RNA sequence: AAGAAGCGGUUUACCGUCCCACAUACAUACUCAAAAUGUAUGUGGGACGGUAAACCAUUUCUU
Numbered sequence: 001a002a003g004a005a006g007c008g009g010u011u012u013a014c015c016g017u018c019c020c021a022c023a024u025a026c027a028u029a030c031u032c033a034a035a036a037u038g039u040a041u042g043u044g045g046g047a048c049g050g051u052a053a054a055c056c057a058u059u060u061c062u063u
Stems, first nucleotide, its partner, number of pairs: 002062004008056021

mir-299 microRNA precursor family: a 63-nucleotide sequence from Rattus norvegicus. The sequence is in the family's curated seed alignment. The base pairs follow the family's consensus structure, which was predicted with RNAalifold. Lineage of the source: Eukaryota > Dipnotetrapodomorpha > Mammalia > Eutheria > Rattus. Rfam 15.1 lists 255 matches to the family in 131 species. On this family, see Altuvia et al., Nucleic Acids Res 2005: "Clustering and conservation patterns of human microRNAs".